[Rfam]
RNA sequence: CGCCGAGUCGUGUCCGCACCCGCGGGCGCGAGCCGGGGACCCACCGCAGUCCUGGGGUGAAUCGCCUGCCGAGUGCAGCGCGUAGGGCUUCUUCCCGCCCGAACCCGUCAGCUAACUCGGUAGGCGGCUCACGGAAGGAA
Numbered sequence: 001c002g003c004c005g006a007g008u009c010g011u012g013u014c015c016g017c018a019c020c021c022g023c024g025g026g027c028g029c030g031a032g033c034c035g036g037g038g039a040c041c042c043a044c045c046g047c048a049g050u051c052c053u054g055g056g057g058u059g060a061a062u063c064g065c066c067u068g069c070c071g072a073g074u075g076c077a078g079c080g081c082g083u084a085g086g087g088c089u090u091c092u093u094c095c096c097g098c099c100c101g102a103a104c105c106c107g108u109c110a111g112c113u114a115a116c117u118c119g120g121u122a123g124g125c126g127g128c129u130c131a132c133g134g135a136a137g138g139a140a
Stems, first nucleotide, its partner, number of pairs: 001126004008031009032121006042054002055106003063082003085100004
Description: This 140-nucleotide RNA sequence from Geodermatophilus dictyosporus belongs to the Rfam family "c-di-AMP riboswitch aptamer (ydaO/yuaA leader)". On this family, see Barrick et al., Proc Natl Acad Sci U S A 2004: "New RNA motifs suggest an expanded scope for riboswitches in bacterial genetic control". The family has 106 seed sequences and 7,607 matches in Rfam 15.1. Rfam's curators write: This family represents a conserved RNA structure found upstream of the ydaO and yuaA genes in Bacillus subtilis and related genes in other bacteria.